[Rfam]
RNA sequence: GAAGUCUGAGGGUAAGUUGCAUUUAGUACGAGAGGAACUGUGCAACGGUGCCGCUGGUGGACCUGUUGUCUGGCAAGGCAUCGCAGGGCAGCUACGCACUAAAGGAUAAAAGCUGAAAGCAUCUAAGCUUGAAACCUCACCUAAAAAGAGACUUCUCAGGACUCUCGUAAAAGACGAGUUUGAUAGAGUCGGGGUGUACGCACCAAGGUGACGAGGUGCUCAGCCCGUCGACUACUAACGUCCAUG
Number, nucleotide and partner (000 for none) at each position: 001g155002a154003a153004g152005u151006c150007u149008g000009a000010g142011g141012g140013u139014a000015a000016g046017u045018u044019g043020c042021a041022u040023u000024u000025a000026g000027u000028a000029c000030g000031a000032g000033a000034g000035g000036a000037a000038c000039u000040g022041u021042g020043c019044a018045a017046c016047g100048g099049u098050g097051c096052c000053g000054c000055u094056g093057g092058u000059g000060g000061a000062c087063c086064u085065g084066u083067u080068g079069u078070c077071u076072g000073g000074c000075a000076a071077g070078g069079c068080a067081u000082c000083g066084c065085a064086g063087g062088g000089c000090a000091g000092c057093u056094a055095c000096g051097c050098a049099c048100u047101a000102a000103a137104g136105g135106a000107u000108a000109a000110a130111a129112g128113c127114u126115g000116a000117a000118a000119g000120c000121a000122u000123c000124u000125a000126a114127g113128c112129u111130u110131g000132a000133a000134a000135c105136c104137u103138c000139a013140c012141c011142u010143a000144a000145a000146a000147a000148g000149a007150g006151a005152c004153u003154u002155c001156u000157c000158a000159g243160g242161a241162c240163u000164c178165u177166c176167g175168u000169a000170a000171a000172a000173g000174a000175c167176g166177a165178g164179u000180u000181u000182g000183a000184u237185a236186g235187a233188g232189u231190c230191g229192g226193g225194g224195u000196g000197u000198a000199c000200g219201c218202a217203c216204c215205a000206a000207g212208g000209u000210g000211a000212c207213g000214a000215g204216g203217u202218g201219c200220u000221c000222a000223g000224c194225c193226c192227g000228u000229c191230g190231a189232c188233u187234a000235c186236u185237a184238a000239c000240g162241u161242c160243c159244a000245u000246g000
Rfam assigns this 246-nucleotide part of an RNA from Candidatus Methanoperedens nitratireducens to the family "Archaeal large subunit ribosomal RNA". Lineage of the source: Archaea > Methanobacteriati > ANME-2 cluster > Candidatus Methanoperedentaceae > Candidatus Methanoperedens. The family's consensus secondary structure is taken from published work. The match comes from Rfam's covariance-model search (2916 bits).